[Rfam]
RNA: Small nucleolar RNA SNORA23
Organism: Poecilia reticulata
RNA sequence: GGUGAAUGGUGUGCACAGUGUAGGUCUGUGCUAUGUGGUGUUGCUAGGCUGCGUUUUGCAGUCCUGGCCACAGCGCUCACGCCGCACCCGCAGCCAUAGAGCAAUCGGGGAUCAUAGUACUGGUCUUUGAGGUCUUCUCAGACAUCUCAUCAUCGACCAGCCUCCAAAGUCUCCAACAAAA
Number, nucleotide and partner (000 for none) at each position: 001g000002g000003u000004g000005a000006a000007u000008g000009g000010u000011g000012u000013g091014c090015a000016c000017a000018g000019u000020g000021u000022a000023g000024g000025u000026c000027u000028g000029u084030g082031c081032u000033a000034u000035g077036u075037g074038g000039u072040g071041u070042u000043g068044c067045u066046a065047g064048g000049c000050u060051g059052c058053g000054u000055u000056u000057u000058g052059c051060a050061g000062u000063c000064c047065u046066g045067g044068c043069c000070a041071c040072a039073g000074c037075g036076c000077u035078c000079a000080c000081g031082c030083c000084g029085c000086a000087c000088c000089c000090g014091c013092a000093g000094c000095c000096a000097u000098a000099g000100a000101g000102c000103a000104a000105u000106c000107g174108g173109g172110g171111a170112u000113c000114a000115u000116a000117g000118u000119a000120c160121u159122g158123g157124u156125c155126u000127u000128u149129g148130a147131g146132g145133u144134c000135u000136u000137c000138u000139c000140a000141g000142a000143c000144a133145u132146c131147u130148c129149a128150u000151c000152a000153u000154c000155g125156a124157c123158c122159a121160g120161c000162c000163u000164c000165c000166a000167a000168a000169g000170u111171c110172u109173c108174c107175a000176a000177c000178a000179a000180a000181a000